[Rfam]
RNA sequence: UGAGUAAGUCGGAUGGCCGCGUGCGAUUUUCGCACGAGGAAAGUCCGAGCUCCACAGGGCAGGGUGCCGGGUAAUACCCGGUGGAGGCGACUCCAAGGAAAGUGCAACAGAGAUAUACCGCCUGGCACUCAACUUGCUGAGUGCUGGGUAAGGGUGGAAAGGUGAGGUAAGAGCUCACCAGGGACCAGGCGACUGGUCUGCUCUGCAAACCCCACCCGGAGCAAGGCGAAUAGGAGGGAGUAGGUGGCCCGCCGUUUCCCUCGGGUUAUGCCGCUGGAGGUGUCAGGCAACUGACCCCCUAGAUAGAUGGCCAUCCUCGACAGAACUCGGCUUACAGACUUGCUCACAUG
Numbered sequence: 001u002g003a004g005u006a007a008g009u010c011g012g013a014u015g016g017c018c019g020c021g022u023g024c025g026a027u028u029u030u031c032g033c034a035c036g037a038g039g040a041a042a043g044u045c046c047g048a049g050c051u052c053c054a055c056a057g058g059g060c061a062g063g064g065u066g067c068c069g070g071g072u073a074a075u076a077c078c079c080g081g082u083g084g085a086g087g088c089g090a091c092u093c094c095a096a097g098g099a100a101a102g103u104g105c106a107a108c109a110g111a112g113a114u115a116u117a118c119c120g121c122c123u124g125g126c127a128c129u130c131a132a133c134u135u136g137c138u139g140a141g142u143g144c145u146g147g148g149u150a151a152g153g154g155u156g157g158a159a160a161g162g163u164g165a166g167g168u169a170a171g172a173g174c175u176c177a178c179c180a181g182g183g184a185c186c187a188g189g190c191g192a193c194u195g196g197u198c199u200g201c202u203c204u205g206c207a208a209a210c211c212c213c214a215c216c217c218g219g220a221g222c223a224a225g226g227c228g229a230a231u232a233g234g235a236g237g238g239a240g241u242a243g244g245u246g247g248c249c250c251g252c253c254g255u256u257u258c259c260c261u262c263g264g265g266u267u268a269u270g271c272c273g274c275u276g277g278a279g280g281u282g283u284c285a286g287g288c289a290a291c292u293g294a295c296c297c298c299c300u301a302g303a304u305a306g307a308u309g310g311c312c313a314u315c316c317u318c319g320a321c322a323g324a325a326c327u328c329g330g331c332u333u334a335c336a337g338a339c340u341u342g343c344u345c346a347c348a349u350g
Stems, first nucleotide, its partner, number of pairs: 001346010011335001012315007020036007041333003045330005050221004057250004062217005067081005082096001083094004097212002102210002104206003118153002120149012161179006181201001182199007225272003234262006243253003279298002282295005
The family of this 350-nucleotide sequence from Thermoanaerobacter sp. X514 is "Bacterial RNase P class A".
It is one of the family's seed sequences.
It is annotated as a ribozyme.